Glycine riboswitch aptamer: a 96-nucleotide RNA from Actinomadura verrucosospora.
NCBI's taxonomy places the organism under Bacteria, Bacillati, Actinomycetes, Thermomonosporaceae, Actinomadura.
The match comes from Rfam's covariance-model search (64 bits).
[Rfam]
RNA sequence: UGAUCCCGUGCGGGAGAGUUCCACGCAGCCGGCGUGGGACGCCGAAGGAGCAAAUCCUCCCCGGAACCUCUCAGGCCCACGGACCGCACGGACCAG
Numbered sequence: 001u002g003a004u005c006c007c008g009u010g011c012g013g014g015a016g017a018g019u020u021c022c023a024c025g026c027a028g029c030c031g032g033c034g035u036g037g038g039a040c041g042c043c044g045a046a047g048g049a050g051c052a053a054a055u056c057c058u059c060c061c062c063g064g065a066a067c068c069u070c071u072c073a074g075g076c077c078c079a080c081g082g083a084c085c086g087c088a089c090g091g092a093c094c095a096g
Stems, first nucleotide, its partner, number of pairs: 006091008020039003041076003044072002048070003055063001